RNA sequence: UGCCUUUGUGUUGCCCAUUCAUUUUAUUUUUCUAGAUGAAUGUGGUGUCUAUCAAGGCGUACAGCAACUUCUGCAUAAAUCUUGGAGGGGUACUUUAACUAUGUGCCUUAACCAUUGUACCUAAUUGUUUAAAUGCAUGAACAUUG
Number, nucleotide and partner (000 for none) at each position: 001u000002g058003c057004c056005u055006u054007u000008g000009u000010g049011u000012u047013g046014c045015c044016c042017a041018u040019u039020c038021a037022u036023u035024u000025u000026a000027u000028u000029u000030u000031u000032c000033u000034a000035g023036a022037u021038g020039a019040a018041u017042g016043u000044g015045g014046u013047g012048u000049c010050u000051a000052u000053c000054a006055a005056g004057g003058c002059g000060u000061a000062c000063a000064g000065c000066a000067a000068c000069u000070u139071c000072u137073g136074c000075a000076u131077a130078a129079a128080u127081c000082u000083u000084g000085g126086a125087g000088g000089g122090g121091u119092a118093c000094u000095u000096u000097a000098a000099c000100u000101a000102u000103g000104u000105g000106c000107c000108u000109u000110a000111a000112c000113c000114a000115u000116u000117g000118u092119a091120c000121c090122u089123a000124a000125u086126u085127g080128u079129u078130u077131a076132a000133a000134u000135g000136c073137a072138u000139g070140a000141a000142c000143a000144u000145u000146g000
The family of this 146-nucleotide RNA from Polypterus senegalus is "Small nucleolar RNA SNORA13". The family has 50 seed sequences and 1,034 matches in Rfam 15.1. Pairs were carried over by alignment from the consensus structure, which was predicted with CMfinder. Rfam describes the family as follows. ACA13 is a member of the H/ACA class of snoRNA that guide the sites of modification of uridines to pseudouridines. Its family is annotated with RNA processing and nucleolus in the Gene Ontology. Taxonomically the source falls in Polypterus (Eukaryota, Metazoa, Bilateria, Polypteridae). The family's RNA type in Rfam is H/ACA-box small nucleolar RNA.